[Rfam]
RNA: psaA RNA
RNA sequence: CCUAUGCUUCCGCCAGCGGUCCCCUCUUUGGGGCCCAGCGCUCCAGUGGCCGACAGGGGUUUCGCUCCUGUCGCCAUUGGCGCCCGGUCGUGGUGACGCUUCGCGGAGCUGCGUCCGGGGCCCCGGUGAACAUCUGUUUAUCGGAGGGGUGGCCCACCACCUCGAUCCCGUCCCUCGAGGAACGACUCGAUGA
Numbered sequence: 001c002c003u004a005u006g007c008u009u010c011c012g013c014c015a016g017c018g019g020u021c022c023c024c025u026c027u028u029u030g031g032g033g034c035c036c037a038g039c040g041c042u043c044c045a046g047u048g049g050c051c052g053a054c055a056g057g058g059g060u061u062u063c064g065c066u067c068c069u070g071u072c073g074c075c076a077u078u079g080g081c082g083c084c085c086g087g088u089c090g091u092g093g094u095g096a097c098g099c100u101u102c103g104c105g106g107a108g109c110u111g112c113g114u115c116c117g118g119g120g121c122c123c124c125g126g127u128g129a130a131c132a133u134c135u136g137u138u139u140a141u142c143g144g145a146g147g148g149g150u151g152g153c154c155c156a157c158c159a160c161c162u163c164g165a166u167c168c169c170g171u172c173c174c175u176c177g178a179g180g181a182a183c184g185a186c187u188c189g190a191u192g193a
Base pairs, nucleotide, nucleotide: 018154019153020152021149022148023147024146025145026144027143030124031123032122033121034120035119036118040083041082043080044079045078046077047076048075049074051073052072053071054070055069056068057067058066059065085117086116087115089113090112091111092110093109094108097105098104099103125142126141127140128139129138130137131136160180161179162178163177164176165175